[Rfam]
RNA: Small nucleolar RNA SNORD75
RNA sequence: AGCCUGUGAUGAAUUUUAAGAUAAGAGUAGUGGACAGAAGCGAUUUCUGACAACUUAAAUACUGAGGCU
Numbered sequence: 001a002g003c004c005u006g007u008g009a010u011g012a013a014u015u016u017u018a019a020g021a022u023a024a025g026a027g028u029a030g031u032g033g034a035c036a037g038a039a040g041c042g043a044u045u046u047c048u049g050a051c052a053a054c055u056u057a058a059a060u061a062c063u064g065a066g067g068c069u
Base pairs, nucleotide, nucleotide: 001069002068003067004066